This 143-nucleotide RNA from Sporomusa sphaeroides belongs to the Rfam family "c-di-AMP riboswitch aptamer (ydaO/yuaA leader)".

RNA sequence: AUAUUUAUAAUGCCGAAUCCUUAUAUGGUACGGGGGAACCAAUAGAAAUACAGGGGUGAAUCCGCAAUCGCGGUAGGGCGUUCUCACAUUCUCUUUUGCCCAAACCCGACAGCUAACCUCGGAGGCGCAUUGUAAGAGAGGUG
Numbered sequence: 001a002u003a004u005u006u007a008u009a010a011u012g013c014c015g016a017a018u019c020c021u022u023a024u025a026u027g028g029u030a031c032g033g034g035g036g037a038a039c040c041a042a043u044a045g046a047a048a049u050a051c052a053g054g055g056g057u058g059a060a061u062c063c064g065c066a067a068u069c070g071c072g073g074u075a076g077g078g079c080g081u082u083c084u085c086a087c088a089u090u091c092u093c094u095u096u097u098g099c100c101c102a103a104a105c106c107c108g109a110c111a112g113c114u115a116a117c118c119u120c121g122g123a124g125g126c127g128c129a130u131u132g133u134a135a136g137a138g139a140g141g142u143g
Base pairs, nucleotide, nucleotide: 011127012126013125014124019028020027031121032120033119034118035117040053054107055106056105062073063072064071065070076101077100078099079098
On this family, see Barrick et al., Proc Natl Acad Sci U S A 2004: "New RNA motifs suggest an expanded scope for riboswitches in bacterial genetic control". The organism belongs to Sporomusa sphaeroides, within Bacteria.